Source information: Rfam assigns this 389-nucleotide RNA sequence from Paracoccus sp. S-4012 to the family "Bacterial RNase P class A". The base pairs follow the family's consensus structure, which is taken from published work. Rfam classes the family as a ribozyme.
Nucleotides: 389
Base pairs, nucleotide, nucleotide: 001385002384003383004382005381006380007379008378009377010376011374012336013335014334015333016332017331018330020042021041022040023039025037026036027035028034047372048371049370051369052368053367054366055365056220057219058218059217064270065269069216070215071214072213073212074088075087076086077085078084089103090101091100092099093098104211105210109209110208111205112204113203126151127150128147129146130145131144132143133142134141135140159177160176161175162174163173164172178200179198180197181196184193185192186191224293225292226291227290234284235283236282237281238280239279262275263274264273265272300319301318302317303316304315305314306313307312
Number, partner (000 for none) and nucleotide at each position: 001385g002384c003383g004382g005381a006380u007379g008378g009377c010376c011374g012336g013335a014334u015333g016332a017331c018330c019000g020042c021041g022040g023039c024000a025037c026036g027035g028034c029000u030000u031000c032000a033000u034028g035027c036026c037025g038000g039023g040022u041021c042020g043000a044000g045000g046000a047372a048371a049370g050000u051369c052368c053367g054366g055365g056220c057219u058218c059217c060000a061000c062000a063000a064270g065269g066000c067000a068000a069216c070215g071214g072213u073212g074088c075087c076086g077085g078084g079000u080000a081000a082000c083000g084078c085077c086076c087075g088074g089103c090101g091100g092099g093098g094000g095000c096000a097000a098093c099092c100091c101090c102000a103089g104211g105210g106000a107000a108000a109209g110208c111205g112204c113203c114000a115000c116000a117000g118000a119000g120000a121000g122000a123000a124000g125000a126151c127150c128147g129146c130145c131144g132143c133142g134141g135140g136000u137000c138000c139000g140135c141134c142133c143132g144131c145130g146129g147128c148000a149000a150127g151126g152000g153000u154000g155000a156000a157000a158000c159177g160176g161175u162174g163173g164172g165000g166000c167000a168000a169000g170000a171000g172164c173163c174162c175161a176160c177159c178200g179198c180197g181196g182000g183000a184193c185192g186191g187000g188000c189000a190000a191186c192185c193184g194000g195000a196181c197180c198179g199000g200178c201000a202000a203113g204112g205111c206000a207000a208110g209109c210105c211104c212073c213072a214071c215070c216069g217059g218058g219057a220056g221000c222000a223000a224293u225292g226291c227290c228000g229000a230000a231000u232000a233000g234284g235283g236282a237281g238280c239279g240000c241000g242000c243000g244000c245000c246000g247000g248000g249000g250000c251000a252000a253000g254000c255000c256000u257000c258000g259000g260000c261000a262275g263274g264273a265272c266000g267000g268000c269065c270064u271000g272265g273264u274263c275262c276000g277000g278000g279239c280238g281237c282236u283235c284234c285000g286000g287000g288000u289000u290227g291226g292225c293224a294000g295000c296000a297000c298000g299000a300319g301318c302317g303316c304315c305314g306313c307312g308000g309000c310000g311000a312307c313306g314305c315304g316303g317302c318301g319300c320000c321000c322000a323000g324000a325000g326000g327000a328000a329000u330018g331017g332016u333015c334014a335013u336012c337000c338000a339000c340000g341000g342000g343000g344000g345000c346000u347000u348000c349000g350000g351000c352000c353000c354000c355000c356000c357000g358000g359000a360000c361000a362000g363000a364000a365055c366054c367053c368052g369051g370049c371048u372047u373000a374011c375000a376010g377009g378008c379007c380006a381005u382004c383003c384002g385001c386000g387000c388000a389000g